[Rfam]
Nucleotides: 076
Base pairs, nucleotide, nucleotide: 030071031070032069034067035066036065037064
Number, partner (000 for none) and nucleotide at each position: 001000a002000c003000g004000c005000c006000a007000a008000a009000u010000g011000g012000u013000a014000a015000a016000g017000a018000u019000a020000a021000a022000g023000u024000a025000a026000u027000u028000u029000c030071a031070c032069c033000a034067u035066a036065a037064u038000a039000a040000c041000a042000a043000u044000a045000g046000u047000u048000a049000a050000g051000g052000u053000a054000u055000a056000a057000a058000a059000a060000a061000g062000a063000a064037a065036u066035u067034a068000a069032g070031g071030u072000a073000u074000a075000a076000u
The family of this 76-nucleotide RNA sequence from Parvimonas sp. oral taxon 393 is "dfrA-dnaX RNA".
The sequence is in the family's curated seed alignment.
The base pairs follow the family's consensus structure, which is taken from published work.
The family's RNA type in Rfam is small RNA.
Taxonomically the source falls in Parvimonas sp. oral taxon 393 (Bacteria, Bacillati, Bacillota, Parvimonas).